The record is an 80-nucleotide RNA sequence from Rubrobacter tropicus, which matches "c-di-GMP-I riboswitch aptamer" in Rfam. A search with the family's covariance model found it, with a score of 46 bits. From the family's description: GEMM was predicted in a large-scale screen for bacterial structured RNA regulatory elements. Its family is annotated with cyclic-di-GMP binding in the Gene Ontology.
RNA sequence: GCUGCGCAAGGGCGACCCCGUCGUGAGGCGGGCAGGCAAAGCCACGGGCCUAUCCGCGGAUAGGCGGCCGGGCCACCGAA
Numbered sequence: 001g002c003u004g005c006g007c008a009a010g011g012g013c014g015a016c017c018c019c020g021u022c023g024u025g026a027g028g029c030g031g032g033c034a035g036g037c038a039a040a041g042c043c044a045c046g047g048g049c050c051u052a053u054c055c056g057c058g059g060a061u062a063g064g065c066g067g068c069c070g071g072g073c074c075a076c077c078g079a080a
Stems, first nucleotide, its partner, number of pairs: 012037002017032006041073003045070003048065007